RNA: Pseudomonas sRNA CrcZ
RNA sequence: ACAACAAGAACAAGAAAGCACACCCAAUAACAAGAACAACACGUAGCGACUCCGACACAAUAAAAACAAGCAGGUGGGAGACGUAGCAAACUGAUUCUUUUGGAGAGGAAUUGCCCGACAGGUUUCCUGUCGACCGGACCGAGAACAAUAAAACUGCCUUGAGGCAGCUCCAGAACCGGUUGAGCCCGCGAGGGCAGUGGCAACAUCAGCGACCAAAAUAAUCCGUUUGUUCUUUAUGUCCCGAAUGGGACUGCUAUGCGGACGAUGGUCCGAUCGGGCUGCGAACAAAAACAACAAGCCCGUCAGCAGAAGAAGAACAAAGCAACACGCCCUGAAGGGGAGCCUAGCGGCUCCCCUUUUUAUUUGGUUCUUCGCGGACUCU
Numbered sequence: 001a002c003a004a005c006a007a008g009a010a011c012a013a014g015a016a017a018g019c020a021c022a023c024c025c026a027a028u029a030a031c032a033a034g035a036a037c038a039a040c041a042c043g044u045a046g047c048g049a050c051u052c053c054g055a056c057a058c059a060a061u062a063a064a065a066a067c068a069a070g071c072a073g074g075u076g077g078g079a080g081a082c083g084u085a086g087c088a089a090a091c092u093g094a095u096u097c098u099u100u101u102g103g104a105g106a107g108g109a110a111u112u113g114c115c116c117g118a119c120a121g122g123u124u125u126c127c128u129g130u131c132g133a134c135c136g137g138a139c140c141g142a143g144a145a146c147a148a149u150a151a152a153a154c155u156g157c158c159u160u161g162a163g164g165c166a167g168c169u170c171c172a173g174a175a176c177c178g179g180u181u182g183a184g185c186c187c188g189c190g191a192g193g194g195c196a197g198u199g200g201c202a203a204c205a206u207c208a209g210c211g212a213c214c215a216a217a218a219u220a221a222u223c224c225g226u227u228u229g230u231u232c233u234u235u236a237u238g239u240c241c242c243g244a245a246u247g248g249g250a251c252u253g254c255u256a257u258g259c260g261g262a263c264g265a266u267g268g269u270c271c272g273a274u275c276g277g278g279c280u281g282c283g284a285a286c287a288a289a290a291a292c293a294a295c296a297a298g299c300c301c302g303u304c305a306g307c308a309g310a311a312g313a314a315g316a317a318c319a320a321a322g323c324a325a326c327a328c329g330c331c332c333u334g335a336a337g338g339g340g341a342g343c344c345u346a347g348c349g350g351c352u353c354c355c356c357u358u359u360u361u362a363u364u365u366g367g368u369u370c371u372u373c374g375c376g377g378a379c380u381c382u
Base pairs, nucleotide, nucleotide: 047083048082050080051079052078053077098218099217100216101215102214112211113210114209131182132181133180134179135178136177137176154167155166156165157164158163239250240249241248242247272370273369275367276301277300278299279298320365321364322363335360336357337356338355339354340353341352342351343350
Dot-bracket structure: ..............................................((.((((.......................)))).))..............(((((.........(((................(((((((................(((((....)))))........)))))))..........................)))..)))))....................((((....)))).....................((.(((((..................))))..................(((............(((((((((......))))))))..)..))).).))............